A member of the RNA family "transfer-messenger RNA" from Prauserella marina, 371 nucleotides long. Bacterial tmRNA, also known as 10Sa RNA or SsrA, is named for its dual tRNA and mRNA-like properties. Its role is to liberate the mRNA from a stalled ribosome. Taxonomically the source falls in Prauserella (Bacteria, Actinomycetes, Pseudonocardiales, Pseudonocardiaceae). The family's consensus secondary structure is taken from published work. A search with the family's covariance model found it, with a score of 130 bits.

[Rfam]
RNA sequence: GGGGGUGAACGGUUUCGACUCUGGACGUUGAUCCAGGGGAAGCGUGCCGGUGCAGGCAACGACCACCGUGAGCGUCGUCGCAAAAAAAUAAGCGCCAAGACGAAUAGUCAGCGCGACUUCGCCCUCGCCGCCUGAGCGAGUGCGAGUCUGUCGGCCCGGGUAAGCCUUCGACCCGGUAUGCCGGCAUCAGCUAGAAGGCUUACCGCCGGUCCCGGCCACGGGGACCGGUUGGGAAAUGAACAGUGGCUGGGCCCGUCACACCGGCUUGUUCGCGUGACCGGAGGGGCCGAGUAGAGGCACAGCGAACUGCGCACGGAGAAGCCCUGGAAAGGCGACAGAGGACCCGGGUUCAAUUCCCGGCACCUCCACGA
Numbered sequence: 001g002g003g004g005g006u007g008a009a010c011g012g013u014u015u016c017g018a019c020u021c022u023g024g025a026c027g028u029u030g031a032u033c034c035a036g037g038g039g040a041a042g043c044g045u046g047c048c049g050g051u052g053c054a055g056g057c058a059a060c061g062a063c064c065a066c067c068g069u070g071a072g073c074g075u076c077g078u079c080g081c082a083a084a085a086a087a088a089u090a091a092g093c094g095c096c097a098a099g100a101c102g103a104a105u106a107g108u109c110a111g112c113g114c115g116a117c118u119u120c121g122c123c124c125u126c127g128c129c130g131c132c133u134g135a136g137c138g139a140g141u142g143c144g145a146g147u148c149u150g151u152c153g154g155c156c157c158g159g160g161u162a163a164g165c166c167u168u169c170g171a172c173c174c175g176g177u178a179u180g181c182c183g184g185c186a187u188c189a190g191c192u193a194g195a196a197g198g199c200u201u202a203c204c205g206c207c208g209g210u211c212c213c214g215g216c217c218a219c220g221g222g223g224a225c226c227g228g229u230u231g232g233g234a235a236a237u238g239a240a241c242a243g244u245g246g247c248u249g250g251g252c253c254c255g256u257c258a259c260a261c262c263g264g265c266u267u268g269u270u271c272g273c274g275u276g277a278c279c280g281g282a283g284g285g286g287c288c289g290a291g292u293a294g295a296g297g298c299a300c301a302g303c304g305a306a307c308u309g310c311g312c313a314c315g316g317a318g319a320a321g322c323c324c325u326g327g328a329a330a331g332g333c334g335a336c337a338g339a340g341g342a343c344c345c346g347g348g349u350u351c352a353a354u355u356c357c358c359g360g361c362a363c364c365u366c367c368a369c370g371a
Stems, first nucleotide, its partner, number of pairs: 001367007019340005028331001032328007043315005048068005056081002059078003124146004129142003149186006156176006164199006203231001205229007214248006250288005263279002268307004275301002344360005